Overview: c-di-GMP-I-GGC riboswitch aptamer: a 75-nucleotide RNA from Cellulomonas carbonis. Pairs were carried over by alignment from the consensus structure, which is taken from published work. Gene Ontology term of the family: cyclic-di-GMP binding. The match comes from Rfam's covariance-model search (64 bits). Its Rfam clan is "c-di-GMP_I riboswitch clan".
RNA sequence: CCACGAAAAGGCAAACCUGUCGCGAGGCAGGGGCGCAAAGCCAUGGGACCCCCGCGGUCAGCCAGGCUACCGAAA
Numbered sequence: 001c002c003a004c005g006a007a008a009a010g011g012c013a014a015a016c017c018u019g020u021c022g023c024g025a026g027g028c029a030g031g032g033g034c035g036c037a038a039a040g041c042c043a044u045g046g047g048a049c050c051c052c053c054g055c056g057g058u059c060a061g062c063c064a065g066g067c068u069a070c071c072g073a074a075a
Stems, first nucleotide, its partner, number of pairs: 011036002016031006034061001039068004044064003047059003